Shown here is a 309-nucleotide RNA sequence from Otolemur garnettii, a member of the family "Vascular endothelial growth factor (VEGF) IRES A". Rfam links the family to the GO term ribosome binding. It is annotated as an internal ribosome entry site. From the family's description: This family represents the vascular endothelial growth factor (VEGF) internal ribosome entry site (IRES) A. VEGF is an endothelial cell mitogen with many crucial functions such as embryogenic development and wound healing. The 5' UTR of VEGF mRNA contains two IRES elements which are able to promote efficient translation at the AUG start codon, this family represents IRES A. On this family, see Huez et al., Mol Cell Biol 1998: "Two independent internal ribosome entry sites are involved in translation initiation of vascular endothelial growth factor mRNA".
[Rfam]
RNA sequence: GCUAGGUCGGGCCAGGAGGAACCGCAGCCAGAGGAGGGGGAGGAGGAAGAAGAGAAGGAAGAGGUGAGGGGGCCGCGGUGGCGACUCAGCGCUUGGAAGCCGGGCUUAUGGACCGGUGAGGUGGUGGUGUGCGCAGACAGUGAUCUAACCGCGCGCGCGCCCCAGGCCCUGGCCCCAGUCUCUGCUGCGGGAGGAAGAGGAGCCCACCAAGGCGCCAAGGAGAGCGGGCCGUCCCGCAGCCAGAACCCAAGAGGGAGUGCGAGCCACGCCGGCCAGGGUCGGGUGUCCGAAACCAUGAACUUUCUCCUC
Numbered sequence: 001g002c003u004a005g006g007u008c009g010g011g012c013c014a015g016g017a018g019g020a021a022c023c024g025c026a027g028c029c030a031g032a033g034g035a036g037g038g039g040g041a042g043g044a045g046g047a048a049g050a051a052g053a054g055a056a057g058g059a060a061g062a063g064g065u066g067a068g069g070g071g072g073c074c075g076c077g078g079u080g081g082c083g084a085c086u087c088a089g090c091g092c093u094u095g096g097a098a099g100c101c102g103g104g105c106u107u108a109u110g111g112a113c114c115g116g117u118g119a120g121g122u123g124g125u126g127g128u129g130u131g132c133g134c135a136g137a138c139a140g141u142g143a144u145c146u147a148a149c150c151g152c153g154c155g156c157g158c159g160c161c162c163c164a165g166g167c168c169c170u171g172g173c174c175c176c177a178g179u180c181u182c183u184g185c186u187g188c189g190g191g192a193g194g195a196a197g198a199g200g201a202g203c204c205c206a207c208c209a210a211g212g213c214g215c216c217a218a219g220g221a222g223a224g225c226g227g228g229c230c231g232u233c234c235c236g237c238a239g240c241c242a243g244a245a246c247c248c249a250a251g252a253g254g255g256a257g258u259g260c261g262a263g264c265c266a267c268g269c270c271g272g273c274c275a276g277g278g279u280c281g282g283g284u285g286u287c288c289g290a291a292a293c294c295a296u297g298a299a300c301u302u303u304c305u306c307c308u309c
Stems, first nucleotide, its partner, number of pairs: 002036002007032002010029003013024001015022001048308002051305002054302002057294002061287002064284001071274004075269002078267005089260006101243001103241004109236003115162002118160001120158001121156003124152004128147002132142003165233003171230005179220003184215001186212001189208002191205001193203001